Rfam assigns this 184-nucleotide sequence from Salisediminibacterium beveridgei to the family "Lysine riboswitch aptamer". Pairs were carried over by alignment from the consensus structure, which is taken from published work.
RNA sequence: AGUGAGAGUAGAGGUGCAAUUUUCAUCAGUAGGUCAGUUCAGGAGGUUGAACUCCCACGAUCCUUUCCGAAAGGGGAAAUUGCCGAAGCACUCAGGUGUUCAACCAUCUGAUCGCUGGUUCUGCCCUUAAAUAAAGGCAGAACUGUCGUACAGCCCAGCUGCUGUAUGGAGGGCUAUCUCACGC
Numbered sequence: 001a002g003u004g005a006g007a008g009u010a011g012a013g014g015u016g017c018a019a020u021u022u023u024c025a026u027c028a029g030u031a032g033g034u035c036a037g038u039u040c041a042g043g044a045g046g047u048u049g050a051a052c053u054c055c056c057a058c059g060a061u062c063c064u065u066u067c068c069g070a071a072a073g074g075g076g077a078a079a080u081u082g083c084c085g086a087a088g089c090a091c092u093c094a095g096g097u098g099u100u101c102a103a104c105c106a107u108c109u110g111a112u113c114g115c116u117g118g119u120u121c122u123g124c125c126c127u128u129a130a131a132u133a134a135a136g137g138c139a140g141a142a143c144u145g146u147c148g149u150a151c152a153g154c155c156c157a158g159c160u161g162c163u164g165u166a167u168g169g170a171g172g173g174c175u176a177u178c179u180c181a182c183g184c
Stems, first nucleotide, its partner, number of pairs: 006179001008177004016083009032068002036064002087116003092111007117144009127134001146169007
Dot-bracket structure: .....(.((((....(((((((((.......((..((.........................))..))......)))))))))...(((..(((((((......)))))))..)))(((((((((.(......).))))))))).(((((((..........)))))))....)))).).....